This 177-nucleotide RNA from Marininema mesophilum belongs to the Rfam family "Lysine riboswitch aptamer". It scores 104 bits against the family's covariance model. Rfam's curators write: Riboswitches are metabolite binding domains within certain messenger RNAs that serve as precision sensors for their corresponding targets. NCBI's taxonomy places the organism under Bacteria, Bacillati, Caryophanales, Thermoactinomycetaceae, Marininema. Pairs were carried over by alignment from the consensus structure, which is taken from published work.

Nucleotides: 177
Stems, first nucleotide, its partner, number of pairs: 008170004016080005023074003033065008084113007092106005114141007122134001124132002143162007
Number, partner (000 for none) and nucleotide at each position: 001000u002000g003000a004000a005000u006000g007000a008170g009169u010168a011167g012000a013000g014000g015000a016080g017079c018078g019077a020076g021000g022000a023074c024073g025072c026000a027000u028000c029000a030000g031000u032000a033065u034064c035063u036062u037061u038060c039059c040058g041000g042000a043000g044000a045000a046000g047000g048000g049000c050000a051000u052000c053000g054000a055000u056000g057000a058040u059039g060038g061037g062036a063035g064034g065033a066000g067000a068000a069000a070000g071000g072025g073024c074023g075000a076020c077019u078018c079017g080016c081000c082000g083000a084113a085112g086111c087110g088109u089108g090107g091000g092106c093105g094104g095103a096102u097000g098000c099000c100000a101000a102096a103095u104094c105093c106092g107090u108089u109088a110087u111086g112085c113084u114141g115140a116139u117138c118137c119136c120135c121000u122134g123000a124132g125131u126000g127000a128000a129000a130000a131125a132124c133000c134122c135120g136119g137118g138117g139116a140115u141114u142000g143162c144161c145160g146159u147158a148157g149156c150000a151000a152000g153000u154000a155000a156149g157148u158147u159146a160145c161144g162143g163000a164000g165000a166000g167011c168010u169009a170008c171000c172000a173000u174000c175000a176000g177000g